[Rfam]
RNA sequence: AAAAAAACAACAAAAUCCCUGCAACAAAAGCUUGAGGCUGCAGGGAUUUUGUUCGGGUGCUCCUUUCAGAGCACCCUCAUGGGAGAGGAGAAACCGGACGAAGAGCUUAUGGGGAAACGUAAGUCUUCUCCGCGG
Numbered sequence: 001a002a003a004a005a006a007a008c009a010a011c012a013a014a015a016u017c018c019c020u021g022c023a024a025c026a027a028a029a030g031c032u033u034g035a036g037g038c039u040g041c042a043g044g045g046a047u048u049u050u051g052u053u054c055g056g057g058u059g060c061u062c063c064u065u066u067c068a069g070a071g072c073a074c075c076c077u078c079a080u081g082g083g084a085g086a087g088g089a090g091a092a093a094c095c096g097g098a099c100g101a102a103g104a105g106c107u108u109a110u111g112g113g114g115a116a117a118c119g120u121a122a123g124u125c126u127u128c129u130c131c132g133c134g135g
Base pairs, nucleotide, nucleotide: 011051012050013049014048015047016046017045018044019043020042021041022040023039052083053082054081055080057074058073059072060071061070062069095132096131097130098129100128101127102126103125105124106123107122108121109120
Dot-bracket structure: ..........(((((((((((((...............)))))))))))))((((.((((((......)))))).....))))...........((((.((((.(((((..........)))))))))))))...
A member of the RNA family "ylbH leader" from Paenibacillus solani, 135 nucleotides long. Lineage of the source: Bacteria > Bacillati > Caryophanales > Paenibacillaceae > Paenibacillus.